[Rfam]
RNA sequence: GCAGACUCACUCUGUACUGAACUGCAGUCUUCAGUUCAGGUGCUUUUUCUGUCUGCAAGAGUAAUGAUUCACAGGAGUGACAAUUGCCUUCUUUCUCGUAGAAGGCUGUUACUAUUGCUGUUGGAACAUUGCU
Numbered sequence: 001g002c003a004g005a006c007u008c009a010c011u012c013u014g015u016a017c018u019g020a021a022c023u024g025c026a027g028u029c030u031u032c033a034g035u036u037c038a039g040g041u042g043c044u045u046u047u048u049c050u051g052u053c054u055g056c057a058a059g060a061g062u063a064a065u066g067a068u069u070c071a072c073a074g075g076a077g078u079g080a081c082a083a084u085u086g087c088c089u090u091c092u093u094u095c096u097c098g099u100a101g102a103a104g105g106c107u108g109u110u111a112c113u114a115u116u117g118c119u120g121u122u123g124g125a126a127c128a129u130u131g132c133u
Stems, first nucleotide, its partner, number of pairs: 001056006014043004018038003022034003068124002071121004076113006086106005
About this RNA
The record is a 133-nucleotide RNA sequence from Atlantisia rogersi, which matches "Small nucleolar RNA SNORA77" in Rfam. About the family: ACA63 (SNORA77) is a member of the H/ACA class of snoRNAs that guide the sites of modification of uridines to pseudouridines. This snoRNA was identified by computational screening and its expression in mouse experimentally verified by Northern blot and primer extension analysis. ACA63 is proposed to guide the pseudouridylation of 18S rRNA U814. A search with the family's covariance model found it, with a score of 55 bits. Rfam 15.1 lists 843 matches to the family in 607 species. Gene Ontology terms of the family: RNA processing and nucleolus.